The family of this 74-nucleotide RNA from Elaeis guineensis is "Small nucleolar RNA Z155". The match comes from Rfam's covariance-model search (49 bits). Taxonomically the source falls in Elaeis (Eukaryota, Embryophyta, Petrosaviidae, Arecoideae). The family's RNA type in Rfam is C/D-box small nucleolar RNA. Rfam links the family to the GO terms nucleolus and RNA processing. For this family Rfam cites "The high diversity of snoRNAs in plants: identification and comparative study of 120 snoRNA genes from Oryza sativa" (Chen et al., Nucleic Acids Res, 2003).

RNA sequence: CGUUGAUGUGAUGAUAACAUUUCGCAGAAAAAAAAAUGUGUUGAUCAAAAGCAUCAGACUUUAUCUGAUCGAUG
Numbered sequence: 001c002g003u004u005g006a007u008g009u010g011a012u013g014a015u016a017a018c019a020u021u022u023c024g025c026a027g028a029a030a031a032a033a034a035a036a037u038g039u040g041u042u043g044a045u046c047a048a049a050a051g052c053a054u055c056a057g058a059c060u061u062u063a064u065c066u067g068a069u070c071g072a073u074g
Stems, first nucleotide, its partner, number of pairs: 001074006